[Rfam]
RNA sequence: AAUGGGGAAGGCGAUGGGGUUCGCCGUCUCUUCCUUCAUCAGAGAAAACCGCAGGCGGUGCUGCUGCUGAUAACUCCUGCAACCUA
Numbered sequence: 001a002a003u004g005g006g007g008a009a010g011g012c013g014a015u016g017g018g019g020u021u022c023g024c025c026g027u028c029u030c031u032u033c034c035u036u037c038a039u040c041a042g043a044g045a046a047a048a049c050c051g052c053a054g055g056c057g058g059u060g061c062u063g064c065u066g067c068u069g070a071u072a073a074c075u076c077c078u079g080c081a082a083c084c085u086a
Stems, first nucleotide, its partner, number of pairs: 010025004016077006051067004
Fluoride riboswitch aptamer (crcB RNA motif): an 86-nucleotide sequence from Sphaerochaeta halotolerans. Rfam links the family to the GO terms positive regulation of gene expression and response to fluoride. Pairs were carried over by alignment from the consensus structure, which is taken from published work.